Record summary
Acido-Lenti-1 RNA: a 46-nucleotide RNA. The family's RNA type in Rfam is small RNA. It is one of the family's seed sequences.

RNA sequence: CCUAGGGCUUACGCCCUAGGCUAAUAAGUAGCGCGCCUACAGCGCU
Numbered sequence: 001c002c003u004a005g006g007g008c009u010u011a012c013g014c015c016c017u018a019g020g021c022u023a024a025u026a027a028g029u030a031g032c033g034c035g036c037c038u039a040c041a042g043c044g045c046u
Base pairs, nucleotide, nucleotide: 001020002019003018004017005016006015007014008013033045034044035043036042